[Rfam]
RNA sequence: AGCCAGUGAUGAAAUUGAUUCUGCCAAAUGAGUUACUGUGAUAUUACCCUUUCCGUUCCUUUUCCGUCUGAGGUU
Numbered sequence: 001a002g003c004c005a006g007u008g009a010u011g012a013a014a015u016u017g018a019u020u021c022u023g024c025c026a027a028a029u030g031a032g033u034u035a036c037u038g039u040g041a042u043a044u045u046a047c048c049c050u051u052u053c054c055g056u057u058c059c060u061u062u063u064c065c066g067u068c069u070g071a072g073g074u075u
Stems, first nucleotide, its partner, number of pairs: 001075004